A member of the RNA family "PyrR binding site" from Mesobacillus campisalis, 131 nucleotides long. The base pairs follow the family's consensus structure, which is taken from published work. Rfam classes the family as a cis-regulatory element. Rfam describes the family as follows. This family represents the PyrR binding site and terminator structure. This RNA structure is found upstream of a variety of genes involved in pyrimidine biosynthesis and transport.
[Rfam]
RNA sequence: GGUACCUUUAAAUUCAGUCCUGUGAGGCUGACAAGGACAGCGGAAGUUGGAAAAGGGGAGGGCUCUCCAUAGCCUUCUUCCUUAUCCUGUGCAAAAAGCUGCUUGUCGAAUCCGGCAAGCAGCUUUUUUUA
Numbered sequence: 001g002g003u004a005c006c007u008u009u010a011a012a013u014u015c016a017g018u019c020c021u022g023u024g025a026g027g028c029u030g031a032c033a034a035g036g037a038c039a040g041c042g043g044a045a046g047u048u049g050g051a052a053a054a055g056g057g058g059a060g061g062g063c064u065c066u067c068c069a070u071a072g073c074c075u076u077c078u079u080c081c082u083u084a085u086c087c088u089g090u091g092c093a094a095a096a097a098g099c100u101g102c103u104u105g106u107c108g109a110a111u112c113c114g115g116c117a118a119g120c121a122g123c124u125u126u127u128u129u130u131a
Stems, first nucleotide, its partner, number of pairs: 005036004014031006052083002055080010095126014